[Rfam]
RNA sequence: ACAAUGCUUCCUGGUGGUGGGCACGCUAAAAGCGGCCUCGACCAAUCGUGUUCAAAGACGACGAGUGAGCCGCCCGAAACUUUCAGGCGGCUUUUUU
Numbered sequence: 001a002c003a004a005u006g007c008u009u010c011c012u013g014g015u016g017g018u019g020g021g022c023a024c025g026c027u028a029a030a031a032g033c034g035g036c037c038u039c040g041a042c043c044a045a046u047c048g049u050g051u052u053c054a055a056a057g058a059c060g061a062c063g064a065g066u067g068a069g070c071c072g073c074c075c076g077a078a079a080c081u082u083u084c085a086g087g088c089g090g091c092u093u094u095u096u097u
Stems, first nucleotide, its partner, number of pairs: 012044004017039001019038004024034003049060004067093008076084002
This 97-nucleotide RNA sequence from Arminella tubonensis belongs to the Rfam family "RcsR1 sRNA". The family's RNA type in Rfam is small RNA. The match comes from Rfam's covariance-model search (87 bits). Rfam describes the family as follows. RcsR1 (rhizobial cold and salinity stress riboregulator 1) trans-acting sRNA, formerly known as SmelC587, is a stress-related riboregulator, conserved in Sinorhizobium, Rhizobium and Agrobacterium. Its family is annotated with negative regulation of translation in response to stress and sRNA-mediated gene silencing in the Gene Ontology. The base pairs follow the family's consensus structure, which is taken from published work. The literature on the family includes a 2015 paper in RNA Biol by Baumgardt et al., "The stress-related, rhizobial small RNA RcsR1 destabilizes the autoinducer synthase encoding mRNA sinI in Sinorhizobium meliloti". NCBI's taxonomy places the organism under Bacteria, Pseudomonadati, Pseudomonadota, Alphaproteobacteria, Arminella.